This 95-nucleotide RNA sequence from Anopheles stephensi belongs to the Rfam family "mir-998 microRNA precursor family".
[Rfam]
RNA sequence: UCAUCAAUACCGGCGCUGAAGUCUCGUGGUUCUGCAGUAUCACAAGCCCAUAUCGUUCAUGUAGCACCAUGAGAUUCAGCUCUGGUGUUUGAUAC
Number, nucleotide and partner (000 for none) at each position: 001u000002c000003a093004u092005c091006a090007a089008u087009a000010c085011c084012g083013g082014c000015g000016c079017u078018g077019a000020a000021g000022u074023c073024u072025c071026g070027u069028g068029g067030u000031u000032c064033u063034g062035c061036a060037g000038u000039a000040u000041c000042a000043c000044a000045a000046g000047c000048c000049c000050a000051u000052a000053u000054c000055g000056u000057u000058c000059a000060u036061g035062u034063a033064g032065c000066a000067c029068c028069a027070u026071g025072a024073g023074a022075u000076u000077c018078a017079g016080c000081u000082c013083u012084g011085g010086u000087g008088u000089u007090u006091g005092a004093u003094a000095c000
Taxonomically the source falls in Neocellia (Eukaryota, Protostomia, Panorpida, Culicoidea). Gene Ontology terms of the family: miRNA-mediated post-transcriptional gene silencing and RISC complex.